[Rfam]
The record is a 100-nucleotide part of an RNA from Metallosphaera cuprina, which matches "Archaeal large subunit ribosomal RNA" in Rfam. It is one of the family's seed sequences.
RNA sequence: GGCAAGGCCCUAAAGGGCUGAAUCUUCUCGAAGGAAAGGGACGCAAGUCCUCAGUACGAGAGAAGAUGACCAGGGUCUUGCUUUUCGUCUUGAAACACGG
Numbered sequence: 001g002g003c004a005a006g007g008c009c010c011u012a013a014a015g016g017g018c019u020g021a022a023u024c025u026u027c028u029c030g031a032a033g034g035a036a037a038g039g040g041a042c043g044c045a046a047g048u049c050c051u052c053a054g055u056a057c058g059a060g061a062g063a064a065g066a067u068g069a070c071c072a073g074g075g076u077c078u079u080g081c082u083u084u085u086c087g088u089c090u091u092g093a094a095a096c097a098c099g100g
Stems, first nucleotide, its partner, number of pairs: 001082010015071002023066007033057001038051005085100004
Record summary: NCBI's taxonomy places the organism under Archaea, Thermoprotei, Sulfolobales, Sulfolobaceae, Metallosphaera cuprina.